[Rfam]
This 78-nucleotide sequence from Mus musculus belongs to the Rfam family "mir-30 microRNA precursor family". Rfam describes the family as follows. This family consists of the mammalian microRNA (miRNA) precursor mir-30a. Animal miRNAs are transcribed as ~70nt precursors and subsequently processed by the Dicer enzyme to give a ~22nt product. In this case the mature sequence comes from both the 3' (miR-30) and 5' (mir-97-6) arms of the precursor. NCBI's taxonomy places the organism under Eukaryota, Vertebrata, Eutheria, Mus, Mus. Rfam's curators put it in the seed alignment.
RNA sequence: UUUGCUACUGUAAACAUCCUUGACUGGAAGCUGUAAGGUGUUGAGAGGAGCUUUCAGUCGGAUGUUUACAGCGGCAGG
Numbered sequence: 001u002u003u004g005c006u007a008c009u010g011u012a013a014a015c016a017u018c019c020u021u022g023a024c025u026g027g028a029a030g031c032u033g034u035a036a037g038g039u040g041u042u043g044a045g046a047g048g049a050g051c052u053u054u055c056a057g058u059c060g061g062a063u064g065u066u067u068a069c070a071g072c073g074g075c076a077g078g
Base pairs, nucleotide, nucleotide: 002077003076004075005074006073008071009070010069011068012067013066014065015064016063017062018061019060023058024057025056026055027054028053029052030051031050032049
Source information:
The family's consensus secondary structure was predicted with PFOLD.